[Rfam]
The record is a 74-nucleotide RNA from SAR116 cluster bacterium MED-G04, which matches "tRNA" in Rfam. Rfam links the family to the GO term triplet codon-amino acid adaptor activity.

RNA sequence: GGUCCCGUAGCUCAUCAGGAUAGAGCGACAGAUUCCUAAUCUGUAGGUAGGGGGUUCGAGUCCCUCCGGGAUCA
Numbered sequence: 001g002g003u004c005c006c007g008u009a010g011c012u013c014a015u016c017a018g019g020a021u022a023g024a025g026c027g028a029c030a031g032a033u034u035c036c037u038a039a040u041c042u043g044u045a046g047g048u049a050g051g052g053g054g055u056u057c058g059a060g061u062c063c064c065u066c067c068g069g070g071a072u073c074a
Base pairs, nucleotide, nucleotide: 001073002072003071004070005069006068007067010026011025012024013023028044029043030042031041032040050066051065052064053063054062
Notes: Rfam classes the family as a transfer RNA.